A member of the RNA family "Selenocysteine transfer RNA" from Thiovibrio frasassiensis, 94 nucleotides long. The organism belongs to Thiovibrio, within Bacteria. The match comes from Rfam's covariance-model search (72 bits). The base pairs follow the family's consensus structure, which is taken from published work.
RNA sequence: GGAAGUGGAAAGGGCUCUGGUGGCUCUCCCGGACUUCAAAUCCGGUGCACCGGGUUAACAGCCUGGUGGGUGGGUUCGAUUCCCAUGCACUUCC
Numbered sequence: 001g002g003a004a005g006u007g008g009a010a011a012g013g014g015c016u017c018u019g020g021u022g023g024c025u026c027u028c029c030c031g032g033a034c035u036u037c038a039a040a041u042c043c044g045g046u047g048c049a050c051c052g053g054g055u056u057a058a059c060a061g062c063c064u065g066g067u068g069g070g071u072g073g074g075u076u077c078g079a080u081u082c083c084c085a086u087g088c089a090c091u092u093c094c
Stems, first nucleotide, its partner, number of pairs: 001094007009086001012027003016023002029045005048068005071085004
Dot-bracket structure: (((((((.(..(((.((....)).))).(((((.......)))))..(((((...........)))))..((((.......))))).)))))))